Nucleotides: 442
Base pairs, nucleotide, nucleotide: 001383002382003381004380005379006378011024012023013022014021015020026129027127028126029125030124031123032122033121036120039115040114041113042112043111044110045109051103052101053100057097058096059095061093062092063091064090068086069085070083071082072081073080133158134157135156136155137154138153139152140151141150142149163174164173165172178347179346180345181344183343184342185341189337190336191335198334199333200332201331202330203329204328215309216308219306220305221304222303223302224301225300226299227298228297236293237292238291239290240289242266243265244264247261248260249259267271272287276285277284348373351370352369353368354367355366356365357364384437386434387433388432389431390430391429392428393427394426395425402421403420404419405418408415409414
Number, partner (000 for none) and nucleotide at each position: 001383c002382u003381c004380c005379c006378c007000g008000a009000a010000a011024u012023g013022u014021a015020u016000u017000u018000a019000g020015g021014u022013g023012c024011a025000g026129c027127g028126u029125c030124a031123u032122g033121c034000g035000c036120u037000u038000a039115u040114c041113g042112a043111g044110g045109g046000g047000g048000g049000u050000a051103g052101a053100g054000c055000a056000c057097u058096g059095a060000a061093u062092g063091a064090g065000c066000u067000a068086g069085g070083g071082g072081g073080c074000a075000c076000a077000c078000c079000c080073g081072c082071c083070u084000a085069c086068c087000a088000a089000a090064c091063u092062c093061a094000a095059u096058c097057a098000a099000a100053c101052u102000c103051c104000g105000a106000a107000u108000a109045c110044c111043c112042u113041c114040g115039a116000a117000c118000g119000a120036a121033g122032c123031a124030u125029g126028g127027c128000a129026g130000u131000a132000a133158g134157a135156c136155a137154g138153u139152g140151g141150g142149g143000g144000a145000u146000a147000a148000g149142c150141u151140u152139c153138a154137u155136u156135g157134u158133c159000g160000a161000a162000a163174g164173g165172g166000a167000a168000a169000c170000a171000g172165c173164c174163c175000a176000g177000c178347u179346c180345a181344g182000c183343a184342g185341c186000u187000a188000a189337g190336g191335u192000g193000c194000c195000u196000a197000a198334a199333u200332a201331a202330c203329g204328c205000u206000c207000a208000g209000u210000g211000g212000a213000a214000a215309g216308g217000a218000a219306g220305u221304g222303a223302g224301a225300u226299u227298u228297c229000u230000u231000u232000g233000a234000c235000a236293g237292u238291g239290a240289g241000g242266a243265u244264g245000u246000u247261g248260g249259c250000u251000u252000a253000g254000a255000a256000g257000c258000a259249g260248c261247c262000a263000c264244c265243a266242u267271u268000u269000a270000a271267a272287c273000a274000g275000u276285g277284c278000g279000u280000a281000a282000u283000a284277g285276c286000u287272g288000a289240c290239u291238c292237a293236u294000c295000g296000a297228g298227a299226g300225a301224u302223c303222u304221c305220g306219c307000g308216c309215c310000g311000a312000a313000a314000a315000u316000g317000a318000u319000u320000g321000g322000c323000g324000a325000u326000a327000a328204g329203c330202g331201u332200u333199a334198u335191a336190c337189c338000g339000a340000a341185g342184c343183u344181c345180u346179g347178g348373a349000c350000u351370a352369u353368a354367c355366u356365g357364u358000c359000c360000a361000a362000g363000g364357g365356c366355a367354g368353u369352a370351u371000u372000u373348u374000g375000g376000u377000a378006g379005g380004g381003g382002a383001g384437c385000g386434u387433u388432c389431u390430g391429u392428g393427a394426g395425c396000g397000u398000c399000g400000a401000a402421g403420c404419g405418g406000g407000a408415a409414g410000g411000u412000g413000a414409c415408u416000g417000a418405c419404c420403g421402u422000g423000g424000a425395g426394u427393u428392c429391a430390c431389a432388g433387a434386a435000g436000u437384g438000a439000g440000g441000a442000u